[Rfam]
RNA sequence: UAAUUUCGCUAGGGGUGCCGCAAGGCUGAGAAAGAUGCAUGCAUCUUAACCCUUUGAACCUGAUGUGGUUAGUACCACCGUAGGGAAGCUGAACUGUUUUUUU
Numbered sequence: 001u002a003a004u005u006u007c008g009c010u011a012g013g014g015g016u017g018c019c020g021c022a023a024g025g026c027u028g029a030g031a032a033a034g035a036u037g038c039a040u041g042c043a044u045c046u047u048a049a050c051c052c053u054u055u056g057a058a059c060c061u062g063a064u065g066u067g068g069u070u071a072g073u074a075c076c077a078c079c080g081u082a083g084g085g086a087a088g089c090u091g092a093a094c095u096g097u098u099u100u101u102u103u
Base pairs, nucleotide, nucleotide: 006091008089009088010087011053012052013051014050017026018025019024033046034045035044036043037042059084060083061082062081065078066077067076068075
RNA: TPP riboswitch aptamer (THI element)